[Rfam]
RNA: Small Cajal body-specific RNA 2
RNA sequence: CUUCACGGGCGGGAGCGCGGCCCGGGGUGAGUGUGUGUAGGUCGACUGCGUGCGGGUCGAGUGCGUUGUGGAAGGUGCUUGUGGGUUGAGAGGACGAAUGGAUGCGUGCGUGAGCGUGCAAGGCGAGCGAGUGAUGCCCCAGCCCCUCCCCUCGUCUACACCUUGAUCUUAUUUGAUCGGGUCGUGACCCCAGCCCCGCCGGGCCGCCCCGAAAUGAAAUGCUCCCCUCCUGCGAAGCCCGCCUCUCGGGGCGCUGUGCAGCGAGGCCGCGUGGGCGGCGGCGGCGCCGUGCUUCCCGAGGUCCCGAGCUGGUCCUGCGGGCGCGGUGCUCAGAAGUGAUGAAUUGAUCAGAUAGACGAGGCCGGGCCUGCCCCGGGCCGCUGAUUAUCGAGGCGAUUCUGAUCUGA
Numbered sequence: 001c002u003u004c005a006c007g008g009g010c011g012g013g014a015g016c017g018c019g020g021c022c023c024g025g026g027g028u029g030a031g032u033g034u035g036u037g038u039a040g041g042u043c044g045a046c047u048g049c050g051u052g053c054g055g056g057u058c059g060a061g062u063g064c065g066u067u068g069u070g071g072a073a074g075g076u077g078c079u080u081g082u083g084g085g086u087u088g089a090g091a092g093g094a095c096g097a098a099u100g101g102a103u104g105c106g107u108g109c110g111u112g113a114g115c116g117u118g119c120a121a122g123g124c125g126a127g128c129g130a131g132u133g134a135u136g137c138c139c140c141a142g143c144c145c146c147u148c149c150c151c152u153c154g155u156c157u158a159c160a161c162c163u164u165g166a167u168c169u170u171a172u173u174u175g176a177u178c179g180g181g182u183c184g185u186g187a188c189c190c191c192a193g194c195c196c197c198g199c200c201g202g203g204c205c206g207c208c209c210c211g212a213a214a215u216g217a218a219a220u221g222c223u224c225c226c227c228u229c230c231u232g233c234g235a236a237g238c239c240c241g242c243c244u245c246u247c248g249g250g251g252c253g254c255u256g257u258g259c260a261g262c263g264a265g266g267c268c269g270c271g272u273g274g275g276c277g278g279c280g281g282c283g284g285c286g287c288c289g290u291g292c293u294u295c296c297c298g299a300g301g302u303c304c305c306g307a308g309c310u311g312g313u314c315c316u317g318c319g320g321g322c323g324c325g326g327u328g329c330u331c332a333g334a335a336g337u338g339a340u341g342a343a344u345u346g347a348u349c350a351g352a353u354a355g356a357c358g359a360g361g362c363c364g365g366g367c368c369u370g371c372c373c374c375g376g377g378c379c380g381c382u383g384a385u386u387a388u389c390g391a392g393g394c395g396a397u398u399c400u401g402a403u404c405u406g407a
Base pairs, nucleotide, nucleotide: 048143049142052066053065054064056062083099086097087096088095105131107129108128109127111125112124173219174218177212178211179210180209183206184205186204189203190202191201193199194198244301245300246299247298248297249296250295251294253293255291258290259289261287262286263285266282267281268280270277308327309326310325311324313321314320315319331406332405333404334403341399342398343397344396345395346394360379361378362377363376365374366373